Background: Shown here is a 105-nucleotide sequence from Sporomusa malonica, a member of the family "TPP riboswitch aptamer (THI element)". Gene Ontology term of the family: thiamine pyrophosphate binding. On this family, see Rodionov et al., J Biol Chem 2002: "Comparative genomics of thiamin biosynthesis in procaryotes. New genes and regulatory mechanisms".
RNA sequence: CAUAAUUGCUAGGGGUGCCUACGGGCUGAGAGAUGAAAUCAGUAUUUCAUUAACCCUUAACCUGAUCUGGAUAAUGCCAGCGUAGGGAAGCGACUUGAAGUAAUA
Number, nucleotide and partner (000 for none) at each position: 001c000002a000003u000004a000005a000006u093007u092008g091009c090010u089011a057012g056013g055014g054015g000016u000017g026018c025019c024020u000021a000022c000023g000024g019025g018026c017027u000028g000029a000030g000031a000032g000033a050034u049035g048036a047037a046038a045039u044040c000041a000042g000043u000044a039045u038046u037047u036048c035049a034050u033051u000052a000053a000054c014055c013056c012057u011058u000059a000060a000061c086062c085063u084064g083065a000066u000067c080068u079069g078070g077071a000072u000073a000074a000075u000076g000077c070078c069079a068080g067081c000082g000083u064084a063085g062086g061087g000088a000089a010090g009091c008092g007093a006094c000095u000096u000097g000098a000099a000100g000101u000102a000103a000104u000105a000